A member of the RNA family "mir-124 microRNA precursor family" from Ophiophagus hannah, 71 nucleotides long.
On this family, see Lagos-Quintana et al., Curr Biol 2002: "Identification of tissue-specific microRNAs from mouse".
RNA sequence: GCCCUUCGUGUUCACAGCGGACCUUGAUUUAAUUUCGAUACAAUUAAGGCACGCGGUGAAUGCCAAGAGAG
Numbered sequence: 001g002c003c004c005u006u007c008g009u010g011u012u013c014a015c016a017g018c019g020g021a022c023c024u025u026g027a028u029u030u031a032a033u034u035u036c037g038a039u040a041c042a043a044u045u046a047a048g049g050c051a052c053g054c055g056g057u058g059a060a061u062g063c064c065a066a067g068a069g070a071g
Stems, first nucleotide, its partner, number of pairs: 003069001005067002008063008017054003022049008

Record summary: The sequence is in the family's curated seed alignment. Rfam links the family to the GO terms RISC complex and miRNA-mediated post-transcriptional gene silencing.